[Rfam]
RNA sequence: UUGUGGUUAUGAUGUUACUGUAUCAAAUCCUUUGGGAUGUACAGUGCCUGAUGUUUGCACCA
Numbered sequence: 001u002u003g004u005g006g007u008u009a010u011g012a013u014g015u016u017a018c019u020g021u022a023u024c025a026a027a028u029c030c031u032u033u034g035g036g037a038u039g040u041a042c043a044g045u046g047c048c049u050g051a052u053g054u055u056u057g058c059a060c061c062a
Base pairs, nucleotide, nucleotide: 001062003060004059005058014048016046017045018044019043020042021041022040023039029036030035
Description: The family of this 62-nucleotide RNA sequence from Chelonoidis abingdonii is "Selenocysteine insertion sequence 1". Its family is annotated with selenocysteine incorporation in the Gene Ontology. Pairs were carried over by alignment from the consensus structure, which is taken from published work. From the family's description: The incorporation of selenocysteine into a protein sequence is directed by an in-frame UGA codon (usually a stop codon) within the coding region of the mRNA. Selenoprotein mRNAs contain a conserved secondary structure in the 3' UTR that is required for the distinction of UGA stop from UGA selenocysteine. The selenocysteine insertion sequence (SECIS) is around 60 nt in length and adopts a hairpin structure which is sufficiently well-defined and conserved to act as a computational screen for selenoprotein genes.